[Rfam]
RNA: Small nucleolar RNA SNORD113/SNORD114 family
RNA sequence: UGGAUCUGUGAUGACCACUAGAGGCGUGGUGGCGUAUGAGCCGUGGAUCAUGAUUACAGGUCUAGGAGUCUGAGAUUCAC
Numbered sequence: 001u002g003g004a005u006c007u008g009u010g011a012u013g014a015c016c017a018c019u020a021g022a023g024g025c026g027u028g029g030u031g032g033c034g035u036a037u038g039a040g041c042c043g044u045g046g047a048u049c050a051u052g053a054u055u056a057c058a059g060g061u062c063u064a065g066g067a068g069u070c071u072g073a074g075a076u077u078c079a080c
Stems, first nucleotide, its partner, number of pairs: 002078005